A member of the RNA family "Small nucleolar RNA SNORD124" from Aramus guarauna, 108 nucleotides long. Taxonomically the source falls in Aramus (Eukaryota, Opisthokonta, Eumetazoa, Neognathae). The family's RNA type in Rfam is C/D-box small nucleolar RNA.

RNA sequence: UGCCUCUCUGGAAGGGGUGAUGUGUCAGCACAGAGCCCAAGAUAAGGACUCUGACUGCAUUUGCGUGUGAUGAAACUUGCUGAGUGUUCUGACCUUCCAUGGUGCGGG
Numbered sequence: 001u002g003c004c005u006c007u008c009u010g011g012a013a014g015g016g017g018u019g020a021u022g023u024g025u026c027a028g029c030a031c032a033g034a035g036c037c038c039a040a041g042a043u044a045a046g047g048a049c050u051c052u053g054a055c056u057g058c059a060u061u062u063g064c065g066u067g068u069g070a071u072g073a074a075a076c077u078u079g080c081u082g083a084g085u086g087u088u089c090u091g092a093c094c095u096u097c098c099a100u101g102g103u104g105c106g107g108g
Stems, first nucleotide, its partner, number of pairs: 009099007